[Rfam]
RNA sequence: CUUGCACCCAAACCCAAGAACUGCAGCUUCUCGUAGCAGUGGUUCAAAUGGUGGUGCGCAUAGCAAGUGGACCAUGUCGCCUUUGGGGGGCUGUGCUGUGCCGCUCAGAGUGAAUGUGAAGGUUCUACACUC
Numbered sequence: 001c002u003u004g005c006a007c008c009c010a011a012a013c014c015c016a017a018g019a020a021c022u023g024c025a026g027c028u029u030c031u032c033g034u035a036g037c038a039g040u041g042g043u044u045c046a047a048a049u050g051g052u053g054g055u056g057c058g059c060a061u062a063g064c065a066a067g068u069g070g071a072c073c074a075u076g077u078c079g080c081c082u083u084u085g086g087g088g089g090g091c092u093g094u095g096c097u098g099u100g101c102c103g104c105u106c107a108g109a110g111u112g113a114a115u116g117u118g119a120a121g122g123u124u125c126u127a128c129a130c131u132c
Base pairs, nucleotide, nucleotide: 003058004057005056006055007054008053019044020043021042022041023040024039026037027036028035069125070124071123072122073121075119081110082109083108084107085106086105087104089102090101091100
RNA: Small nucleolar RNA SNORA68